The record is a 111-nucleotide RNA, which matches "DUF3800-I RNA" in Rfam. Rfam describes the family as follows. Actinobacteria, Firmicutes, Fusobacteria, Proteobacteria (1 example), Tenericutes (2 examples). The family's RNA type in Rfam is small RNA.
[Rfam]
RNA sequence: UAUAGUUGCAGGUAGGAAAUCUACACUGCUUAUCGGUCAAGUCGAGUUAGCGCUUAAGCGAACUGUAAGUUCGCCGACCGCCGAGCCGCCCUUGAGGCGGUUUUUUGUUUU
Numbered sequence: 001u002a003u004a005g006u007u008g009c010a011g012g013u014a015g016g017a018a019a020u021c022u023a024c025a026c027u028g029c030u031u032a033u034c035g036g037u038c039a040a041g042u043c044g045a046g047u048u049a050g051c052g053c054u055u056a057a058g059c060g061a062a063c064u065g066u067a068a069g070u071u072c073g074c075c076g077a078c079c080g081c082c083g084a085g086c087c088g089c090c091c092u093u094g095a096g097g098c099g100g101u102u103u104u105u106u107g108u109u110u111u
Stems, first nucleotide, its partner, number of pairs: 008029004012024005033084005041078004045054003058074006085101006